[Rfam]
A member of the RNA family "Small nucleolar RNA Z161/Z228" from Musa balbisiana, 96 nucleotides long. Its Rfam clan is "SNORD35 clan". Its family is annotated with RNA processing and nucleolus in the Gene Ontology. It is annotated as a C/D-box small nucleolar RNA.

RNA sequence: GGGCCAGAUGAUGAGAAUGGAUUGUACAUCUCACGACGGUCAUCUGAGAUGCUUUUAACAGUGUCUAGGUCGAUGCAAAUCCUAUUGCUGAUGGCU
Numbered sequence: 001g002g003g004c005c006a007g008a009u010g011a012u013g014a015g016a017a018u019g020g021a022u023u024g025u026a027c028a029u030c031u032c033a034c035g036a037c038g039g040u041c042a043u044c045u046g047a048g049a050u051g052c053u054u055u056u057a058a059c060a061g062u063g064u065c066u067a068g069g070u071c072g073a074u075g076c077a078a079a080u081c082c083u084a085u086u087g088c089u090g091a092u093g094g095c096u
Stems, first nucleotide, its partner, number of pairs: 001096002004093001050063003